Rfam assigns this 125-nucleotide sequence from Ruminococcus sp. CAG:254 to the family "Ribosomal protein L10 leader". The literature on the family includes a 1994 paper in Prog Nucleic Acid Res Mol Biol by Zengel and Lindahl, "Diverse mechanisms for regulating ribosomal protein synthesis in Escherichia coli". The base pairs follow the family's consensus structure, which was predicted with CMfinder. Rfam describes the family as follows. This family is a putative r-protein leader autoregulatory structure found in B. subtilis and other low-GC Gram-positive bacteria. Lineage of the source: Bacteria > Bacillati > Bacillota > Clostridia > Ruminococcus.

[Rfam]
RNA sequence: ACAACCGAAUAUCGUAUUCUAAAGACAGCUGGUGGUGUUUCACCGUAAGUCCAGCCGAGGAAUUGCUUUAUCAAUGAAAGAUACUGCCGCAUUCCUUGUCGAAUGACGGCUUUUUUUGGAUUGUG
Numbered sequence: 001a002c003a004a005c006c007g008a009a010u011a012u013c014g015u016a017u018u019c020u021a022a023a024g025a026c027a028g029c030u031g032g033u034g035g036u037g038u039u040u041c042a043c044c045g046u047a048a049g050u051c052c053a054g055c056c057g058a059g060g061a062a063u064u065g066c067u068u069u070a071u072c073a074a075u076g077a078a079a080g081a082u083a084c085u086g087c088c089g090c091a092u093u094c095c096u097u098g099u100c101g102a103a104u105g106a107c108g109g110c111u112u113u114u115u116u117u118g119g120a121u122u123g124u125g
Stems, first nucleotide, its partner, number of pairs: 028055005034044003086110004090105005